Shown here is a 504-nucleotide part of an RNA from Silurus meridionalis, a member of the family "Eukaryotic large subunit ribosomal RNA".

[Rfam]
RNA sequence: CCCUCCGAAGUUUCCCUCAGGAUAGCUGGCGCUCUUUCGUCUCGCAGUUUUAUCCGGUAAAGCUAAUGAUUAGAGGCAUUGGGGCCGAAACGAUCUCAACCUAUUCUCAAACUUUAAAUGGGUAAGAAGCCCGGCUCGCUGGCUUGGAAUGCGAGCGCCCAGUGGGCCACUUUUGGUAAGCAGAACUGGCGCUGCGGGAUGAACCGAACGCCGGGUUAAGGCGCCCGAUGCCGACGCUCAUCAGACCCCAUAAAAGGUGUUGGUUGAUAUAGACAGCAGGACGGUGGCCAUGGAAGUCGGAAUCCGCUAAGGAGUGUGUAACAACUCACCUGCCGAAUCAACUAGCCCUGAAAAUGGAUGGCGCUGGAGCGUCGGGCCCAUACCCGGCCGUCGCCGGCAGAAACCCCACCCCCCUCGAACCUAAGCCGCGACGAGUAGGAGGGCCGCUGCGGUGGCGCGGAAGCCUCGGGCGCGGGCCCGGGUGGAGCCGCCGCAGGUGCAGAU
Numbered sequence: 001c002c003c004u005c006c007g008a009a010g011u012u013u014c015c016c017u018c019a020g021g022a023u024a025g026c027u028g029g030c031g032c033u034c035u036u037u038c039g040u041c042u043c044g045c046a047g048u049u050u051u052a053u054c055c056g057g058u059a060a061a062g063c064u065a066a067u068g069a070u071u072a073g074a075g076g077c078a079u080u081g082g083g084g085c086c087g088a089a090a091c092g093a094u095c096u097c098a099a100c101c102u103a104u105u106c107u108c109a110a111a112c113u114u115u116a117a118a119u120g121g122g123u124a125a126g127a128a129g130c131c132c133g134g135c136u137c138g139c140u141g142g143c144u145u146g147g148a149a150u151g152c153g154a155g156c157g158c159c160c161a162g163u164g165g166g167c168c169a170c171u172u173u174u175g176g177u178a179a180g181c182a183g184a185a186c187u188g189g190c191g192c193u194g195c196g197g198g199a200u201g202a203a204c205c206g207a208a209c210g211c212c213g214g215g216u217u218a219a220g221g222c223g224c225c226c227g228a229u230g231c232c233g234a235c236g237c238u239c240a241u242c243a244g245a246c247c248c249c250a251u252a253a254a255a256g257g258u259g260u261u262g263g264u265u266g267a268u269a270u271a272g273a274c275a276g277c278a279g280g281a282c283g284g285u286g287g288c289c290a291u292g293g294a295a296g297u298c299g300g301a302a303u304c305c306g307c308u309a310a311g312g313a314g315u316g317u318g319u320a321a322c323a324a325c326u327c328a329c330c331u332g333c334c335g336a337a338u339c340a341a342c343u344a345g346c347c348c349u350g351a352a353a354a355u356g357g358a359u360g361g362c363g364c365u366g367g368a369g370c371g372u373c374g375g376g377c378c379c380a381u382a383c384c385c386g387g388c389c390g391u392c393g394c395c396g397g398c399a400g401a402a403a404c405c406c407c408a409c410c411c412c413c414c415u416c417g418a419a420c421c422u423a424a425g426c427c428g429c430g431a432c433g434a435g436u437a438g439g440a441g442g443g444c445c446g447c448u449g450c451g452g453u454g455g456c457g458c459g460g461a462a463g464c465c466u467c468g469g470g471c472g473c474g475g476g477c478c479c480g481g482g483u484g485g486a487g488c489c490g491c492c493g494c495a496g497g498u499g500c501a502g503a504u
Stems, first nucleotide, its partner, number of pairs: 001443006011024001013022003028159006048127008060115001061113002067109003072104001074102003079099006086092001129143003133139001166190004171185005195206003210388005216382001220378003229375001231374001235371003255349003259346010276333005282306003288300002307311001312327001316325002389433006396427003445499001447496010463483002469478003